Notes: Shown here is a 71-nucleotide RNA sequence from Pedionomus torquatus, a member of the family "Small nucleolar RNA SNORD63". Rfam 15.1 lists 795 matches to the family in 549 species. A search with the family's covariance model found it, with a score of 63 bits. Gene Ontology terms of the family: nucleolus and RNA processing. For this family Rfam cites "Purified box C/D snoRNPs are able to reproduce site-specific 2'-O-methylation of target RNA in vitro" (Galardi et al., Mol Cell Biol, 2002). Pairs were carried over by alignment from the consensus structure, which was predicted with PFOLD.
RNA sequence: GUGCUAUGAUGUAACUAUCAACACAUCAUUCUGAAGAAGAAUUUUGUGGACACCUUCUAUAACUGAGCACC
Numbered sequence: 001g002u003g004c005u006a007u008g009a010u011g012u013a014a015c016u017a018u019c020a021a022c023a024c025a026u027c028a029u030u031c032u033g034a035a036g037a038a039g040a041a042u043u044u045u046g047u048g049g050a051c052a053c054c055u056u057c058u059a060u061a062a063c064u065g066a067g068c069a070c071c
Stems, first nucleotide, its partner, number of pairs: 001070004